Overview:
Small nucleolar RNA SNORA9: a 132-nucleotide RNA sequence from Neomonachus schauinslandi. The organism belongs to Neomonachus, within Eukaryota. ACA9 is a member of the H/ACA class of snoRNA that guide the sites of modification of uridines to pseudouridines.
RNA sequence: CUGCAAGCCUCCAGCGUGCUCGGGUCUGGGGUGACCCUGUGCAUUCCUGCAGUGCUUGCGAGAGCAUCCUGAAACGGUUUGAGGCCUUGCCCUGCUCCGUCCAGAGCAAGGUUAUAGAAAUUUCAGACAGGU
Numbered sequence: 001c002u003g004c005a006a007g008c009c010u011c012c013a014g015c016g017u018g019c020u021c022g023g024g025u026c027u028g029g030g031g032u033g034a035c036c037c038u039g040u041g042c043a044u045u046c047c048u049g050c051a052g053u054g055c056u057u058g059c060g061a062g063a064g065c066a067u068c069c070u071g072a073a074a075c076g077g078u079u080u081g082a083g084g085c086c087u088u089g090c091c092c093u094g095c096u097c098c099g100u101c102c103a104g105a106g107c108a109a110g111g112u113u114a115u116a117g118a119a120a121u122u123u124c125a126g127a128c129a130g131g132u
Base pairs, nucleotide, nucleotide: 003059004058005057006056007055008054017043018042019041022037023036024035025034026033070125071124072123073122074121085111086110087109088108089107090106092104093103094102
The family is grouped with related families in Rfam's "SNORA9 clan". It scores 148 bits against the family's covariance model.